[Rfam]
RNA sequence: CUAACAGAGUUUAUUGGCAUUCUGUCCACCUCCCUUCAAUAGAAAACCUCCUCCUCUCUCUCUCUCUCUCUCUCUGGAGGUGGGCAUACUGCCAACUGAGCUCUGUUGG
Numbered sequence: 001c002u003a004a005c006a007g008a009g010u011u012u013a014u015u016g017g018c019a020u021u022c023u024g025u026c027c028a029c030c031u032c033c034c035u036u037c038a039a040u041a042g043a044a045a046a047c048c049u050c051c052u053c054c055u056c057u058c059u060c061u062c063u064c065u066c067u068c069u070c071u072c073u074c075u076g077g078a079g080g081u082g083g084g085c086a087u088a089c090u091g092c093c094a095a096c097u098g099a100g101c102u103c104u105g106u107u108g109g
Stems, first nucleotide, its partner, number of pairs: 011099001014095006023086011